[Rfam]
RNA: Glycine riboswitch aptamer
Organism: Dechloromonas sp.
RNA sequence: CUUCGUUCCGUGGGAGAGCGCAGCGCGAGCUGCCGCCGAAGGCGCAAAUCCACCCGAAAACGCUCAGGCAAAAGGACCGCGGAAUCAGC
Numbered sequence: 001c002u003u004c005g006u007u008c009c010g011u012g013g014g015a016g017a018g019c020g021c022a023g024c025g026c027g028a029g030c031u032g033c034c035g036c037c038g039a040a041g042g043c044g045c046a047a048a049u050c051c052a053c054c055c056g057a058a059a060a061c062g063c064u065c066a067g068g069c070a071a072a073a074g075g076a077c078c079g080c081g082g083a084a085u086c087a088g089c
Base pairs, nucleotide, nucleotide: 006084007083008082009081010080011079012078013077020033021032022031023030035069036068037067038065039064042063043062044061049056